Shown here is a 122-nucleotide RNA sequence from Marinobacter profundi, a member of the family "Ribosomal S15 leader". NCBI's taxonomy places the organism under Bacteria, Pseudomonadati, Pseudomonadota, Pseudomonadales, Marinobacter. The family's RNA type in Rfam is cis-regulatory leader.
RNA sequence: UAGCCGGGCUGUAGAGAUGCGUGGUCCGGCCGUACACGAUUGCAUCGCAAACCAUGAGGUGAGUUAUGGCACUUUCUGCCAAUGAGAAAGCACAGAUCGUUAAGGAUUUUCAGCAAGGUGAA
Dot-bracket structure: ..((((((((((........)))))))))).........................((((((........))))))...............................................